[Rfam]
RNA sequence: CGUAUGAUGCUGCGGCCAGCCACGCUCUGCCUGCUUAGUCGUCGGCGGCCUGUGUUUACACAGCGCACAAUCUUAACCGGGUCUUU
Numbered sequence: 001c002g003u004a005u006g007a008u009g010c011u012g013c014g015g016c017c018a019g020c021c022a023c024g025c026u027c028u029g030c031c032u033g034c035u036u037a038g039u040c041g042u043c044g045g046c047g048g049c050c051u052g053u054g055u056u057u058a059c060a061c062a063g064c065g066c067a068c069a070a071u072c073u074u075a076a077c078c079g080g081g082u083c084u085u086u
Stems, first nucleotide, its partner, number of pairs: 015049003019046003022042003026038001050063005
Shown here is an 86-nucleotide RNA, a member of the family "Peptidase-S11 RNA". It is annotated as a cis-regulatory element. The base pairs follow the family's consensus structure, which is taken from published work. Rfam's curators put it in the seed alignment.